Rfam assigns this 600-nucleotide part of an RNA from Segatella oulorum to the family "Bacterial small subunit ribosomal RNA". The match comes from Rfam's covariance-model search (1476 bits). The family is grouped with related families in Rfam's "SSU clan". Taxonomically the source falls in Segatella oulorum (Bacteria, Pseudomonadati, Bacteroidota, Prevotellaceae).

RNA sequence: UGACGGGGGCCCGCACAAGCGGAGGAACAUGUGGUUUAAUUCGAUGAUACGCGAGGAACCUUACCCGGGCUUGAAUUGCAGAUGAACGCGGCAGAGAUGCCAAGGCCCUUCGGGGCAUCUGUGAAGGUGCUGCAUGGUUGUCGUCAGCUCGUGCCGUGAGGUGUCGGCUUAAGUGCCAUAACGAGCGCAACCCCUUUUCUUAGUUGCCAUCAGGUGAUGCUGGGCACUCUGGGAAUACUGCCACCGUAAGGUGUGAGGAAGGUGGGGAUGACGUCAAAUCAGCACGGCCCUUACGUCCGGGGCUACACACGUGUUACAAUGGCCGGUACAGAGGGCAGGUUGCAUGUAAAUGCGAUCGAAUCUUAAAAGCCGGUCCCAGUUCGGACUGAGGUCUGCAACCCGACCUCACGAAGCUGGAUUCGCUAGUAAUCGCGCAUCAGCCAUGGCGCGGUGAAUACGUUCCCGGGCCUUGUACACACCGCCCGUCAAGCCAUGAAAGCCGGGGGUGCCUAAAGUCCGUUACCGCAAGGAUCGGCCUAGGGCAAAACUGGUAAUUGGGGCUAAGUCGUAACAAGGUAGCCGUACCGGAAGGUGCGGCUG
Numbered sequence: 001u002g003a004c005g006g007g008g009g010c011c012c013g014c015a016c017a018a019g020c021g022g023a024g025g026a027a028c029a030u031g032u033g034g035u036u037u038a039a040u041u042c043g044a045u046g047a048u049a050c051g052c053g054a055g056g057a058a059c060c061u062u063a064c065c066c067g068g069g070c071u072u073g074a075a076u077u078g079c080a081g082a083u084g085a086a087c088g089c090g091g092c093a094g095a096g097a098u099g100c101c102a103a104g105g106c107c108c109u110u111c112g113g114g115g116c117a118u119c120u121g122u123g124a125a126g127g128u129g130c131u132g133c134a135u136g137g138u139u140g141u142c143g144u145c146a147g148c149u150c151g152u153g154c155c156g157u158g159a160g161g162u163g164u165c166g167g168c169u170u171a172a173g174u175g176c177c178a179u180a181a182c183g184a185g186c187g188c189a190a191c192c193c194c195u196u197u198u199c200u201u202a203g204u205u206g207c208c209a210u211c212a213g214g215u216g217a218u219g220c221u222g223g224g225c226a227c228u229c230u231g232g233g234a235a236u237a238c239u240g241c242c243a244c245c246g247u248a249a250g251g252u253g254u255g256a257g258g259a260a261g262g263u264g265g266g267g268a269u270g271a272c273g274u275c276a277a278a279u280c281a282g283c284a285c286g287g288c289c290c291u292u293a294c295g296u297c298c299g300g301g302g303c304u305a306c307a308c309a310c311g312u313g314u315u316a317c318a319a320u321g322g323c324c325g326g327u328a329c330a331g332a333g334g335g336c337a338g339g340u341u342g343c344a345u346g347u348a349a350a351u352g353c354g355a356u357c358g359a360a361u362c363u364u365a366a367a368a369g370c371c372g373g374u375c376c377c378a379g380u381u382c383g384g385a386c387u388g389a390g391g392u393c394u395g396c397a398a399c400c401c402g403a404c405c406u407c408a409c410g411a412a413g414c415u416g417g418a419u420u421c422g423c424u425a426g427u428a429a430u431c432g433c434g435c436a437u438c439a440g441c442c443a444u445g446g447c448g449c450g451g452u453g454a455a456u457a458c459g460u461u462c463c464c465g466g467g468c469c470u471u472g473u474a475c476a477c478a479c480c481g482c483c484c485g486u487c488a489a490g491c492c493a494u495g496a497a498a499g500c501c502g503g504g505g506g507u508g509c510c511u512a513a514a515g516u517c518c519g520u521u522a523c524c525g526c527a528a529g530g531a532u533c534g535g536c537c538u539a540g541g542g543c544a545a546a547a548c549u550g551g552u553a554a555u556u557g558g559g560g561c562u563a564a565g566u567c568g569u570a571a572c573a574a575g576g577u578a579g580c581c582g583u584a585c586c587g588g589a590a591g592g593u594g595c596g597g598c599u600g
Stems, first nucleotide, its partner, number of pairs: 001476002003473003007470007015460002019423005024317001026315008034306002040055004064301007076124003080120005087104001090101004106115001108113001126290002129288004135284002137279003140275001142273002147186006153162003166177003192267004197235007207224002211222003238258002241255001242253004321375007333364003338357002343352003382413001387408007429452007479575001481572001484568002489562004494557003499552005507544004515537001517535003523530002577600010